Annotation: This 202-nucleotide RNA from Fontibacillus phaseoli belongs to the Rfam family "FMN riboswitch aptamer (RFN element)". It scores 96 bits against the family's covariance model.
[Rfam]
RNA sequence: GCAUUCCUUCGGGGUUAGGUGAAAUUCCUUACCGACGGUGAUGGCGAGUUUCGGUUUAUGGAAUUGCAUUUUGGCUAAUGCCAAAAUGCAUUGAACCGGGGCAAGCAUGAGUCCGUGACCCAUAUACGCUAUUAGUGUCGUAUAUGGCUGAGCCGGUGUGAUUCCGGGACCGACAGUAUAGUCUGGAUGGGAGAAGGAGACG
Numbered sequence: 001g002c003a004u005u006c007c008u009u010c011g012g013g014g015u016u017a018g019g020u021g022a023a024a025u026u027c028c029u030u031a032c033c034g035a036c037g038g039u040g041a042u043g044g045c046g047a048g049u050u051u052c053g054g055u056u057u058a059u060g061g062a063a064u065u066g067c068a069u070u071u072u073g074g075c076u077a078a079u080g081c082c083a084a085a086a087u088g089c090a091u092u093g094a095a096c097c098g099g100g101g102c103a104a105g106c107a108u109g110a111g112u113c114c115g116u117g118a119c120c121c122a123u124a125u126a127c128g129c130u131a132u133u134a135g136u137g138u139c140g141u142a143u144a145u146g147g148c149u150g151a152g153c154c155g156g157u158g159u160g161a162u163u164c165c166g167g168g169a170c171c172g173a174c175a176g177u178a179u180a181g182u183c184u185g186g187a188u189g190g191g192a193g194a195a196g197g198a199g200a201c202g
Stems, first nucleotide, its partner, number of pairs: 004199007017029003031182002033172002035116004120147006153167004174185003